[Rfam]
RNA sequence: UAACAUUGAAUAAUCGUACCGUAGACAGUAGGUGCCGCAAGGCUUAAUCUCCUACCGAGGUGUUCGAAUAGAAGGAGUGCGAGGGUGUGUAGUUUGCCUGCACAUCAUUCGCUCGUGAUGCCUCUGUAGAAUACCUGCAGAGGCUUUUCUUAUGCUCGA
Numbered sequence: 001u002a003a004c005a006u007u008g009a010a011u012a013a014u015c016g017u018a019c020c021g022u023a024g025a026c027a028g029u030a031g032g033u034g035c036c037g038c039a040a041g042g043c044u045u046a047a048u049c050u051c052c053u054a055c056c057g058a059g060g061u062g063u064u065c066g067a068a069u070a071g072a073a074g075g076a077g078u079g080c081g082a083g084g085g086u087g088u089g090u091a092g093u094u095u096g097c098c099u100g101c102a103c104a105u106c107a108u109u110c111g112c113u114c115g116u117g118a119u120g121c122c123u124c125u126g127u128a129g130a131a132u133a134c135c136u137g138c139a140g141a142g143g144c145u146u147u148u149c150u151u152a153u154g155c156u157c158g159a
Base pairs, nucleotide, nucleotide: 028055029054030053031052032051034043035042036041120144121143122142123141124140125139126138127137128136129135

Rfam assigns this 159-nucleotide RNA from Paenibacillus aquistagni to the family "Ribosomal protein L10 leader".
It scores 76 bits against the family's covariance model.
Rfam classes the family as a cis-regulatory leader.